[Rfam]
RNA sequence: GCGCGUCACUCCCACUCGGAUCGUCCGGCACGUUCCUGCCGGUGGAAGGAGACGGC
Number, nucleotide and partner (000 for none) at each position: 001g000002c000003g000004c000005g000006u000007c000008a000009c048010u047011c000012c045013c044014a043015c000016u000017c000018g000019g000020a000021u000022c000023g000024u000025c042026c041027g040028g039029c038030a037031c000032g000033u000034u000035c000036c000037u030038g029039c028040c027041g026042g025043u014044g013045g012046a000047a010048g009049g000050a000051g000052a000053c000054g000055g000056c000